Rfam assigns this 124-nucleotide sequence from Rhizobium sp. P32RR-XVIII to the family "Alphaproteobacterial ar14".
Rfam classes the family as a small RNA.
Pairs were carried over by alignment from the consensus structure.

[Rfam]
RNA sequence: AUGCGCGUGGGCGACCGUCCUCCUCCCAGGUCGCUCUCGGGAUCAGCGCCACUCCUCCUCCCAGGUUGCUGAUCGGUUCUUUUGGAAAAGCCUGCCGCACCUCCUCCCGCGGCAGGCUUUUUCG
Number, nucleotide and partner (000 for none) at each position: 001a000002u000003g000004c000005g000006c000007g038008u000009g036010g000011g034012c033013g032014a031015c030016c029017g000018u000019c000020c000021u000022c000023c000024u000025c000026c000027c000028a000029g016030g015031u014032c013033g012034c011035u000036c009037u000038c007039g000040g000041g074042a073043u072044c071045a070046g069047c068048g067049c000050c065051a000052c000053u000054c000055c000056u000057c000058c000059u000060c000061c000062c000063a000064g000065g050066u000067u048068g047069c046070u045071g044072a043073u042074c041075g000076g000077u000078u000079c000080u000081u000082u000083u000084g000085g000086a000087a000088a119089a118090g117091c116092c115093u114094g113095c112096c111097g110098c109099a000100c000101c000102u000103c000104c000105u000106c000107c000108c000109g098110c097111g096112g095113c094114a093115g092116g091117c090118u089119u088120u000121u000122u000123c000124g000
Rfam links the family to the GO term biological process involved in symbiotic interaction. Rfam describes the family as follows. Smr14C2 was renamed NfeR1 (Nodule Formation Efficiency RNA) highly expressed in salt stress and during the symbiotic interaction on legume roots.